[Rfam]
RNA: UnaL2 LINE 3' element
RNA sequence: AUGCAAAAGCUGUGUAAGUCACUCUGGAUGAGAGUGUCUGCUAAAUGCCUGUAA
Numbered sequence: 001a002u003g004c005a006a007a008a009g010c011u012g013u014g015u016a017a018g019u020c021a022c023u024c025u026g027g028a029u030g031a032g033a034g035u036g037u038c039u040g041c042u043a044a045a046u047g048c049c050u051g052u053a054a
Stems, first nucleotide, its partner, number of pairs: 013043001014041003020036006
Dot-bracket structure: ............((((...((((((.....))))))..))).)...........